[Rfam]
RNA sequence: AUUGUUGGCUGAAUGAGUGAUCGGCGACAAUACAUUCAUUAACUCACUCAGAAUUGGAGUACACCAUGGCUUUAACUGUUGCUGAAAAAGCAAAAAUCGUUGCGGAUUACGCACAAAAAGAA
Numbered sequence: 001a002u003u004g005u006u007g008g009c010u011g012a013a014u015g016a017g018u019g020a021u022c023g024g025c026g027a028c029a030a031u032a033c034a035u036u037c038a039u040u041a042a043c044u045c046a047c048u049c050a051g052a053a054u055u056g057g058a059g060u061a062c063a064c065c066a067u068g069g070c071u072u073u074a075a076c077u078g079u080u081g082c083u084g085a086a087a088a089a090g091c092a093a094a095a096a097u098c099g100u101u102g103c104g105g106a107u108u109a110c111g112c113a114c115a116a117a118a119a120g121a122a
Base pairs, nucleotide, nucleotide: 008025009024010023011022012021054075055074056073057072058071059070
Dot-bracket structure: .......(((((........)))))............................((((((..........))))))...............................................